The family of this 45-nucleotide RNA sequence from Sphingopyxis sp. QXT-31 is "chrB-b RNA". The family's RNA type in Rfam is cis-regulatory element.

[Rfam]
RNA sequence: UCGGGGCGAGGCAACCUCCCGGUCAGGCAUCCGCCCAAGCGUUGC
Numbered sequence: 001u002c003g004g005g006g007c008g009a010g011g012c013a014a015c016c017u018c019c020c021g022g023u024c025a026g027g028c029a030u031c032c033g034c035c036c037a038a039g040c041g042u043u044g045c
Base pairs, nucleotide, nucleotide: 001022002021003020004019005018006017011045012044013043014042015041026035027034028033
Lineage of the source: Bacteria > Pseudomonadota > Alphaproteobacteria > Sphingomonadales > Sphingopyxis.